Rfam assigns this 98-nucleotide RNA from Coptis chinensis to the family "Small nucleolar RNA Z103". The literature on the family includes a 2003 paper in Nucleic Acids Res by Chen et al., "The high diversity of snoRNAs in plants: identification and comparative study of 120 snoRNA genes from Oryza sativa". Pairs were carried over by alignment from the consensus structure, which was predicted with PFOLD. It is annotated as a C/D-box small nucleolar RNA.
[Rfam]
Nucleotides: 098
Stems, first nucleotide, its partner, number of pairs: 001098005
Number, partner (000 for none) and nucleotide at each position: 001098a002097u003096u004095g005094a006000a007000g008000u009000g010000a011000u012000g013000a014000g015000c016000c017000u018000u019000u020000c021000c022000c023000c024000a025000g026000c027000u028000u029000a030000u031000c032000g033000a034000c035000u036000g037000u038000g039000a040000u041000u042000a043000a044000a045000c046000u047000g048000u049000g050000c051000a052000u053000u054000u055000a056000u057000a058000u059000u060000u061000c062000u063000c064000u065000u066000u067000u068000u069000g070000a071000g072000a073000u074000c075000u076000a077000u078000c079000a080000a081000g082000c083000c084000a085000g086000g087000a088000a089000u090000c091000u092000g093000a094005u095004c096003a097002a098001u
The organism belongs to Coptis, within Eukaryota.
Rfam links the family to the GO terms RNA processing and nucleolus.